[Rfam]
RNA sequence: UAGCAAGGGUCCACGGUGGAUGCCCUGGCACUGGAGCCGAUGAAGGACGCGAUUACCUGCGAAAAGCCCUGACGAGCUGGAGAUAUGCGUUGACUCAGGGAUGUCCGAAUGGGGAAACCCACCCGCUGUGAACAGCGGGUACGCCGCAAGGCGAGGGAACCCAGGGAACUGAAACAUCUCAGUACCUGGAGGAGAAGAAAGAGACAUCGAUUCCGUUAGUAGCGGCGAGCGAACCCGGAACAGCCCAAACCAGGGGAUUUAUCCCCUGGGGUUGUAGGAUCAGUUUUUAAGAUUCAACCGCUUUACCUGAAGCACUUGGGAAAGUGCACCGCAGAAGGUGAGAGUCCUGUAGGGAACGGGGCGGUUGACUGUACUGACACCUGAGUAGGUCGUUGUCCGUGAAACGAUGACUGAAUCCGCGCGGACCACCGCGCAAGGCUAAAUACUCCCAGUGACCGAUAGCGCAAAGUACCGUGAGGGAACGGUGAAAAGAACCCCGGGAGGGGAGUGAAAUAGAACCUGAAACCGUGGACUUACAAG
Numbered sequence: 001u002a003g004c005a006a007g008g009g010u011c012c013a014c015g016g017u018g019g020a021u022g023c024c025c026u027g028g029c030a031c032u033g034g035a036g037c038c039g040a041u042g043a044a045g046g047a048c049g050c051g052a053u054u055a056c057c058u059g060c061g062a063a064a065a066g067c068c069c070u071g072a073c074g075a076g077c078u079g080g081a082g083a084u085a086u087g088c089g090u091u092g093a094c095u096c097a098g099g100g101a102u103g104u105c106c107g108a109a110u111g112g113g114g115a116a117a118c119c120c121a122c123c124c125g126c127u128g129u130g131a132a133c134a135g136c137g138g139g140u141a142c143g144c145c146g147c148a149a150g151g152c153g154a155g156g157g158a159a160c161c162c163a164g165g166g167a168a169c170u171g172a173a174a175c176a177u178c179u180c181a182g183u184a185c186c187u188g189g190a191g192g193a194g195a196a197g198a199a200a201g202a203g204a205c206a207u208c209g210a211u212u213c214c215g216u217u218a219g220u221a222g223c224g225g226c227g228a229g230c231g232a233a234c235c236c237g238g239a240a241c242a243g244c245c246c247a248a249a250c251c252a253g254g255g256g257a258u259u260u261a262u263c264c265c266c267u268g269g270g271g272u273u274g275u276a277g278g279a280u281c282a283g284u285u286u287u288u289a290a291g292a293u294u295c296a297a298c299c300g301c302u303u304u305a306c307c308u309g310a311a312g313c314a315c316u317u318g319g320g321a322a323a324g325u326g327c328a329c330c331g332c333a334g335a336a337g338g339u340g341a342g343a344g345u346c347c348u349g350u351a352g353g354g355a356a357c358g359g360g361g362c363g364g365u366u367g368a369c370u371g372u373a374c375u376g377a378c379a380c381c382u383g384a385g386u387a388g389g390u391c392g393u394u395g396u397c398c399g400u401g402a403a404a405c406g407a408u409g410a411c412u413g414a415a416u417c418c419g420c421g422c423g424g425a426c427c428a429c430c431g432c433g434c435a436a437g438g439c440u441a442a443a444u445a446c447u448c449c450c451a452g453u454g455a456c457c458g459a460u461a462g463c464g465c466a467a468a469g470u471a472c473c474g475u476g477a478g479g480g481a482a483c484g485g486u487g488a489a490a491a492g493a494a495c496c497c498c499g500g501g502a503g504g505g506g507a508g509u510g511a512a513a514u515a516g517a518a519c520c521u522g523a524a525a526c527c528g529u530g531g532a533c534u535u536a537c538a539a540g
Base pairs, nucleotide, nucleotide: 007535008534009533010532011531012530013529014528015527016526022520023485024484027457028456029454030453031452032451033450034449035447036446037156038155045106046105047104048061049060050059067100068099069098070097071096072095076088077087111120112119113118121140122139123138124137125136126135127134142153143152144151145150160191161189162188163187164186165185171178172177201208202207211443212239213238214237215236222230223229242440243439244438245437250269251268252267253266254265255264256263276382277381278380280377281376282375283374284373292370294368295367296366297365298364299363300362301361302360303359304358306354307353308352312327313326314325315324316323330334336348337347338346388412389411390410391409392408393407394406395405396404419434420433421432422431423430472479473478495506496505497504498503
Description:
Shown here is a 540-nucleotide part of an RNA from Deinococcus ruber, a member of the family "Bacterial large subunit ribosomal RNA". Taxonomically the source falls in Deinococcus (Bacteria, Deinococcota, Deinococci, Deinococcaceae).